[Rfam]
Nucleotides: 193
Base pairs, nucleotide, nucleotide: 013179014178015177016176017175018174020173021172026167027166028165029164030163037156057135058134060132061131062130066126067125068124069123074118
Number, partner (000 for none) and nucleotide at each position: 001000g002000u003000u004000u005000u006000g007000a008000a009000g010000g011000u012000a013179g014178a015177g016176c017175u018174c019000u020173u021172c022000u023000g024000a025000a026167u027166u028165c029164c030163a031000a032000a033000g034000a035000g036000g037156a038000u039000c040000u041000a042000a043000g044000a045000g046000g047000g048000a049000a050000a051000a052000u053000u054000g055000a056000g057135c058134u059000g060132c061131u062130g063000a064000u065000c066126u067125a068124u069123g070000g071000a072000u073000c074118c075000c076000u077000c078000a079000a080000u081000c082000c083000u084000a085000u086000c087000u088000a089000u090000u091000u092000u093000c094000a095000g096000a097000u098000u099000a100000a101000u102000u103000u104000u105000a106000g107000a108000u109000a110000g111000g112000u113000u114000u115000g116000u117000g118074g119000u120000u121000u122000g123069c124068a125067u126066a127000u128000a129000u130062c131061a132060g133000g134058a135057g136000c137000u138000g139000c140000a141000u142000u143000u144000a145000c146000u147000c148000u149000u150000c151000u152000a153000g154000g155000a156037u157000c158000u159000u160000u161000a162000u163030u164029g165028g166027a167026a168000a169000g170000a171000a172021g173020g174018g175017a176016g177015c178014u179013c180000u181000a182000c183000a184000c185000u186000u187000g188000a189000u190000a191000a192000c193000c
Shown here is a 193-nucleotide sequence from Solanum lycopersicum, a member of the family "MIR159 microRNA precursor family". Its family is annotated with RISC complex and miRNA-mediated post-transcriptional gene silencing in the Gene Ontology. For this family Rfam cites "Computational identification of plant microRNAs and their targets, including a stress-induced miRNA" (Jones-Rhoades and Bartel, Mol Cell, 2004). The organism belongs to Solanum subgen. Lycopersicon, within Eukaryota.